[Rfam]
RNA sequence: GUACCCUAAUGGAGCUCUGGCUGUGACUUGUGUGUUCAUGAAUUAAAAUCACAUCACAGGCAUAGAUCUAAUUAGGUAA
Numbered sequence: 001g002u003a004c005c006c007u008a009a010u011g012g013a014g015c016u017c018u019g020g021c022u023g024u025g026a027c028u029u030g031u032g033u034g035u036u037c038a039u040g041a042a043u044u045a046a047a048a049u050c051a052c053a054u055c056a057c058a059g060g061c062a063u064a065g066a067u068c069u070a071a072u073u074a075g076g077u078a079a
Base pairs, nucleotide, nucleotide: 004076005075010070011069012068013067015065016064021059022058023057024056025055026054030052031051032050
Annotation: Shown here is a 79-nucleotide RNA sequence from Habropoda laboriosa, a member of the family "mir-11 microRNA precursor family". The match comes from Rfam's covariance-model search (53 bits). The family's consensus secondary structure was predicted with RNAalifold. Rfam 15.1 lists 138 matches to the family in 136 species. On this family, see Chen et al., Insect Mol Biol 2010: "Next-generation small RNA sequencing for microRNAs profiling in the honey bee Apis mellifera". Its Rfam clan is "mir-6 clan". Gene Ontology terms of the family: cellular response to gamma radiation, negative regulation of cell death and negative regulation of apoptotic process.